A member of the RNA family "mir-29 microRNA precursor family" from Platysternon megacephalum, 61 nucleotides long. About the family: This family represents the microRNA (miRNA) precursors mir-29. For this family Rfam cites "microRNAs: tiny regulators with great potential" (Ambros, Cell, 2001).
[Rfam]
RNA sequence: AUUGGACUGACUUCUGUUGGUGAGAGAGACAAGCUCUCUCACCAACAGAAGUCAGUCCAAU
Numbered sequence: 001a002u003u004g005g006a007c008u009g010a011c012u013u014c015u016g017u018u019g020g021u022g023a024g025a026g027a028g029a030c031a032a033g034c035u036c037u038c039u040c041a042c043c044a045a046c047a048g049a050a051g052u053c054a055g056u057c058c059a060a061u
Stems, first nucleotide, its partner, number of pairs: 001061004005056001007055009017045006026038004
The organism belongs to Platysternon, within Eukaryota. Its family is annotated with RISC complex and gene silencing by miRNA in the Gene Ontology.